RNA sequence: UUGUGAAAAAUGCCGAAUUCCCGUCGAACGGGAAGCGGGGGAACCAAUCCGGGUGAACGGACUCUGCGCUGCCGGGCGGCAUGCGCCGGAAGAGUCCCAGGGAGCCUUCGACCGAACCCCACAGCUAACCUCGCAGGCAUCGGAAGGAGUUCUC
Numbered sequence: 001u002u003g004u005g006a007a008a009a010a011u012g013c014c015g016a017a018u019u020c021c022c023g024u025c026g027a028a029c030g031g032g033a034a035g036c037g038g039g040g041g042a043a044c045c046a047a048u049c050c051g052g053g054u055g056a057a058c059g060g061a062c063u064c065u066g067c068g069c070u071g072c073c074g075g076g077c078g079g080c081a082u083g084c085g086c087c088g089g090a091a092g093a094g095u096c097c098c099a100g101g102g103a104g105c106c107u108u109c110g111a112c113c114g115a116a117c118c119c120c121a122c123a124g125c126u127a128a129c130c131u132c133g134c135a136g137g138c139a140u141c142g143g144a145a146g147g148a149g150u151u152c153u154c
Base pairs, nucleotide, nucleotide: 011139012138013137014136018034019033020032021031022030023029024028035134036133037132038131039130040129051119052118053117059097060096061095062094063093064092065091100113101112

Notes: The record is a 154-nucleotide RNA sequence from Thermobacillus composti, which matches "c-di-AMP riboswitch aptamer (ydaO/yuaA leader)" in Rfam. The organism belongs to Thermobacillus composti, within Bacteria. Its family is annotated with regulation of gene expression and cyclic-di-AMP binding in the Gene Ontology.